Record summary: This 233-nucleotide sequence from Desulfofundulus thermobenzoicus belongs to the Rfam family "Group II catalytic intron D1-D4-6". A reference for the family is Bonen and Vogel (2001), "The ins and outs of group II introns", Trends Genet. The match comes from Rfam's covariance-model search (124 bits).
RNA sequence: CGAUGCUCACCUGCUAAUGCCUAACCAGCAGCCAGUAGCGAGUCCUUGGAGUCUGCCAGGUAAUUGCCAGAUUUAAGCGUAGGACAGCGAAACAGCGGGCCGGAAGCGAAAGCUGAAGGGAUUGAGCCACGAAAUCAGCAAUGGGAAGGCCGAUGCUUUUAAAUGAGCAUAAGGCAACACCGGGAGCAAUCGUCAUGGUGAAACUGCUCCGGCUUCUCCGGGGUCGGAGACCU
Numbered sequence: 001c002g003a004u005g006c007u008c009a010c011c012u013g014c015u016a017a018u019g020c021c022u023a024a025c026c027a028g029c030a031g032c033c034a035g036u037a038g039c040g041a042g043u044c045c046u047u048g049g050a051g052u053c054u055g056c057c058a059g060g061u062a063a064u065u066g067c068c069a070g071a072u073u074u075a076a077g078c079g080u081a082g083g084a085c086a087g088c089g090a091a092a093c094a095g096c097g098g099g100c101c102g103g104a105a106g107c108g109a110a111a112g113c114u115g116a117a118g119g120g121a122u123u124g125a126g127c128c129a130c131g132a133a134a135u136c137a138g139c140a141a142u143g144g145g146a147a148g149g150c151c152g153a154u155g156c157u158u159u160u161a162a163a164u165g166a167g168c169a170u171a172a173g174g175c176a177a178c179a180c181c182g183g184g185a186g187c188a189a190u191c192g193u194c195a196u197g198g199u200g201a202a203a204c205u206g207c208u209c210c211g212g213c214u215u216c217u218c219c220g221g222g223g224u225c226g227g228a229g230a231c232c233u
Stems, first nucleotide, its partner, number of pairs: 011035003018030003022201001024199002038088002042085001044083003047079002049074007057066003123227001124225001126224003130220002143218006149175003154169004180212005186207003190203001

Group II introns are found in rRNA, tRNA and mRNA of organelles in fungi, plants and protists, and also in mRNA in bacteria.